[Rfam]
RNA sequence: GUGGGCUAUGGGGAUAUGUGUCCCAUUACCAUGGGGGGCAAGAUGGUGGGCACACUCUGUGCCAUUGCUGGUGUGUUGACCAUUGCGCUGCCUGUACCUGUCAUCGUCUCCAAC
Numbered sequence: 001g002u003g004g005g006c007u008a009u010g011g012g013g014a015u016a017u018g019u020g021u022c023c024c025a026u027u028a029c030c031a032u033g034g035g036g037g038g039c040a041a042g043a044u045g046g047u048g049g050g051c052a053c054a055c056u057c058u059g060u061g062c063c064a065u066u067g068c069u070g071g072u073g074u075g076u077u078g079a080c081c082a083u084u085g086c087g088c089u090g091c092c093u094g095u096a097c098c099u100g101u102c103a104u105c106g107u108c109u110c111c112a113a114c
Stems, first nucleotide, its partner, number of pairs: 001114002004111002008107004013102004018097004037077004049063003